RNA sequence: CUCCAGCGGUCGUCGGCUAAAAACGGUCACGUCCUGAGACCCAACACCGACAUGAGAACGUCCGGUUCA
Number, nucleotide and partner (000 for none) at each position: 001c000002u000003c000004c000005a000006g000007c000008g000009g000010u000011c000012g051013u050014c049015g048016g047017c000018u000019a000020a000021a000022a000023a000024c000025g000026g040027u039028c038029a000030c036031g000032u000033c000034c000035u000036g030037a000038g028039a027040c026041c000042c000043a000044a000045c000046a000047c016048c015049g014050a013051c012052a000053u000054g000055a000056g068057a067058a066059c065060g000061u000062c000063c000064g000065g059066u058067u057068c056069a000
Record summary
Rfam assigns this 69-nucleotide sequence from Alteribacillus bidgolensis to the family "Bacillaceae-1 RNA". The family's consensus secondary structure is taken from published work.